T-box leader: a 253-nucleotide RNA sequence from Alkaliphilus serpentinus. Uncharged tRNA acts as the effector for transcription antitermination of genes in the T-box leader family. T-boxes are found upstream of many aminoacyl-tRNA synthetase genes and some amino acid biosynthetic genes usually in Gram-positive bacteria. The anticodon of a specific tRNA base pairs to a specifier sequence within the T-box motif, and the NCCA acceptor tail of the tRNA base pairs to a conserved bulge in the T-box antiterminator hairpin. By type it is a cis-regulatory leader.
RNA sequence: UCAUCGGUGAUGACGGGAAGAGUAAGCCUUUGGAAUCAGCAAAAGAGAGCCGGGUAAGGUGAAAGCCGGUGCUGAUGAAAAUAGCUGAAGAUGGCCCCUGAGCCUCUUGGUUGAGGAAGCAUAAGCUUCUUAGGUUGAGACGGAUUUGCCUCCGUUAUAUAGGCAAGGUAAAUCAAUGAAUUUACCUAUUGAGUUUAUUGUUGCAAAACAGUAAUAAACUAGGGUGGUAACGCGAUUAAUCCUCGUCCCUAUA
Numbered sequence: 001u002c003a004u005c006g007g008u009g010a011u012g013a014c015g016g017g018a019a020g021a022g023u024a025a026g027c028c029u030u031u032g033g034a035a036u037c038a039g040c041a042a043a044a045g046a047g048a049g050c051c052g053g054g055u056a057a058g059g060u061g062a063a064a065g066c067c068g069g070u071g072c073u074g075a076u077g078a079a080a081a082u083a084g085c086u087g088a089a090g091a092u093g094g095c096c097c098c099u100g101a102g103c104c105u106c107u108u109g110g111u112u113g114a115g116g117a118a119g120c121a122u123a124a125g126c127u128u129c130u131u132a133g134g135u136u137g138a139g140a141c142g143g144a145u146u147u148g149c150c151u152c153c154g155u156u157a158u159a160u161a162g163g164c165a166a167g168g169u170a171a172a173u174c175a176a177u178g179a180a181u182u183u184a185c186c187u188a189u190u191g192a193g194u195u196u197a198u199u200g201u202u203g204c205a206a207a208a209c210a211g212u213a214a215u216a217a218a219c220u221a222g223g224g225u226g227g228u229a230a231c232g233c234g235a236u237u238a239a240u241c242c243u244c245g246u247c248c249c250u251a252u253a
Stems, first nucleotide, its partner, number of pairs: 007103002015098003025086003030081001038073003049070005106139007141154003196216007221250004232246004
It scores 102 bits against the family's covariance model.